A member of the RNA family "c-di-GMP-II-GAG riboswitch aptamer", 87 nucleotides long. Rfam's curators put it in the seed alignment. Gene Ontology terms of the family: cyclic-di-GMP binding and regulation of gene expression. The family's consensus secondary structure is taken from published work. Clan: c-di-GMP_II riboswitch clan. On this family, see Weinberg et al., Proc Natl Acad Sci U S A 2017: "Bioinformatic analysis of riboswitch structures uncovers variant classes with altered ligand specificity".
Nucleotides: 087
Base pairs, nucleotide, nucleotide: 004084006082009079010078011077013062014061015060023055024054025053026052027051028050029049039074040073041070042069043068044067045066
Number, partner (000 for none) and nucleotide at each position: 001000c002000a003000a004084u005000a006082g007000a008000g009079u010078g011077g012000a013062u014061g015060c016000g017000a018000c019000g020000a021000c022000a023055c024054g025053g026052g027051g028050g029049g030000g031000c032000u033000g034000u035000a036000u037000u038000c039074g040073g041070g042069c043068a044067c045066c046000u047000g048000g049029c050028c051027c052026c053025c054024c055023g056000c057000c058000g059000a060015g061014c062013g063000a064000g065000u066045g067044g068043u069042g070041c071000g072000a073040c074039c075000g076000g077011c078010c079009a080000a081000g082006c083000g084004g085000c086000g087000a